Shown here is a 132-nucleotide RNA sequence from Corynebacterium uropygiale, a member of the family "atpB RNA". It is annotated as a cis-regulatory element.
RNA sequence: CUGCGGCGGUCCCGUUGAUGUGCGACGGAGUCCGAGACAGCCGCAGUGUAUUGAACGACGUCCAUCGCACCGUAGGGGAUCGUGAGAUCCUGUACGGCCCUGAACACGGGAGAGAACGCUGAGCGUUAUGAC
Numbered sequence: 001c002u003g004c005g006g007c008g009g010u011c012c013c014g015u016u017g018a019u020g021u022g023c024g025a026c027g028g029a030g031u032c033c034g035a036g037a038c039a040g041c042c043g044c045a046g047u048g049u050a051u052u053g054a055a056c057g058a059c060g061u062c063c064a065u066c067g068c069a070c071c072g073u074a075g076g077g078g079a080u081c082g083u084g085a086g087a088u089c090c091u092g093u094a095c096g097g098c099c100c101u102g103a104a105c106a107c108g109g110g111a112g113a114g115a116a117c118g119c120u121g122a123g124c125g126u127u128a129u130g131a132c
Base pairs, nucleotide, nucleotide: 001046002045003044004043005042006041007040009038010037011036070097071096072095073094074093076091077090078089079088080087081086